[Rfam]
Overview
A member of the RNA family "Glycine riboswitch aptamer" from Polymorphum gilvum, 105 nucleotides long. Rfam links the family to the GO term glycine biosynthetic process. Pairs were carried over by alignment from the consensus structure.

RNA sequence: AAGGCCUCAGCGGGAGAGGCCGGACGCGAACCGCAAGGGGCGCGAUCCGGCGCCGAAGGAGCAACCGCCCCGGAAACUCUCAGGCAAAAGGACCGCUGGGCAAGC
Number, nucleotide and partner (000 for none) at each position: 001a000002a000003g000004g000005c000006c100007u099008c098009a097010g096011c095012g094013g093014g000015a000016g000017a000018g000019g000020c050021c049022g048023g047024a000025c000026g000027c000028g000029a000030a000031c000032c000033g000034c000035a000036a000037g000038g000039g000040g000041c000042g000043c000044g000045a000046u000047c023048c022049g021050g020051c000052g085053c084054c083055g081056a080057a000058g000059g079060a078061g077062c000063a000064a000065c073066c072067g000068c000069c000070c000071c000072g066073g065074a000075a000076a000077c061078u060079c059080u056081c055082a000083g054084g053085c052086a000087a000088a000089a000090g000091g000092a000093c013094c012095g011096c010097u009098g008099g007100g006101c000102a000103a000104g000105c000
Rfam's curators write: This family represents the bacterial glycine riboswitch. Lineage of the source: Bacteria > Pseudomonadati > Alphaproteobacteria > Paracoccaceae > Polymorphum gilvum. A search with the family's covariance model found it, with a score of 61 bits.